A member of the RNA family "MIR5070 microRNA precursor family" from Brachypodium distachyon, 116 nucleotides long. Its Rfam clan is "MIR2863 microRNA precursor clan". The family has 2 seed sequences and 266 matches in Rfam 15.1.
RNA sequence: CAGGCUAACCGUUGACCCUCCUUAGUUCAACCAAAUGAACUAAAAUUUCAAAAUAACACAAUUUUUUGGAAAACUAAUUCAUUUGUUUGAACUAAGCAGGGUCAACGGGUACUCCG
Numbered sequence: 001c002a003g004g005c006u007a008a009c010c011g012u013u014g015a016c017c018c019u020c021c022u023u024a025g026u027u028c029a030a031c032c033a034a035a036u037g038a039a040c041u042a043a044a045a046u047u048u049c050a051a052a053a054u055a056a057c058a059c060a061a062u063u064u065u066u067u068g069g070a071a072a073a074c075u076a077a078u079u080c081a082u083u084u085g086u087u088u089g090a091a092c093u094a095a096g097c098a099g100g101g102u103c104a105a106c107g108g109g110u111a112c113u114c115c116g
Stems, first nucleotide, its partner, number of pairs: 003114002006111002009108011021096010032085008041076002